[Rfam]
RNA sequence: GACGACAACUCUGGAGAGUGGUGCCGCACGCACCCGCCGAAGGGAUAACGAUCUCAGGCGAAAGGACAGAGGAGGCACC
Numbered sequence: 001g002a003c004g005a006c007a008a009c010u011c012u013g014g015a016g017a018g019u020g021g022u023g024c025c026g027c028a029c030g031c032a033c034c035c036g037c038c039g040a041a042g043g044g045a046u047a048a049c050g051a052u053c054u055c056a057g058g059c060g061a062a063a064g065g066a067c068a069g070a071g072g073a074g075g076c077a078c079c
Base pairs, nucleotide, nucleotide: 006074009071010070011069012068013067020034021033022032023031036059037058038057039055040054043053044052

This 79-nucleotide RNA from Thalassorhabdomicrobium marinisediminis belongs to the Rfam family "Glycine riboswitch aptamer". Gene Ontology term of the family: glycine biosynthetic process. The source organism's lineage runs through Bacteria, Alphaproteobacteria, Rhodobacterales, Paracoccaceae and Thalassorhabdomicrobium.